RNA: Selenocysteine transfer RNA
Organism: Myxococcaceae bacterium
RNA sequence: GGAAACGGUACCGCGGCGGUCCGAGGGCGCGUCUUCAAAACGCGACGAGUUCGUGGCGACACGGACUCUGCGGGUUCGACUCCCGUCCGUUUCC
Numbered sequence: 001g002g003a004a005a006c007g008g009u010a011c012c013g014c015g016g017c018g019g020u021c022c023g024a025g026g027g028c029g030c031g032u033c034u035u036c037a038a039a040a041c042g043c044g045a046c047g048a049g050u051u052c053g054u055g056g057c058g059a060c061a062c063g064g065a066c067u068c069u070g071c072g073g074g075u076u077c078g079a080c081u082c083c084c085g086u087c088c089g090u091u092u093c094c
Base pairs, nucleotide, nucleotide: 001094002093003092004091005090006089007088008087011026012025014023015022016021028044029043030042031041032040047068048067049066050065051064052063053062071085072084073083074082